[Rfam]
RNA sequence: CCAUAAUCAUGUGACUGACGGAAGUGGAAUCAACCACGGGGAGCAUGAUUGACGCGAAGCCGACCGUCUGGGCAACAUUU
Numbered sequence: 001c002c003a004u005a006a007u008c009a010u011g012u013g014a015c016u017g018a019c020g021g022a023a024g025u026g027g028a029a030u031c032a033a034c035c036a037c038g039g040g041g042a043g044c045a046u047g048a049u050u051g052a053c054g055c056g057a058a059g060c061c062g063a064c065c066g067u068c069u070g071g072g073c074a075a076c077a078u079u080u
Base pairs, nucleotide, nucleotide: 004051005050006049007048008047009046010045011044012043015040016039017068018067019066020065021064024037025036026035027034059073060072061071
Shown here is an 80-nucleotide sequence from Megasphaera sp. An286, a member of the family "ZMP/ZTP riboswitch aptamer (pfl RNA motif)". The source organism's lineage runs through Bacteria, Bacillati, Negativicutes, Veillonellales and Megasphaera. A search with the family's covariance model found it, with a score of 63 bits.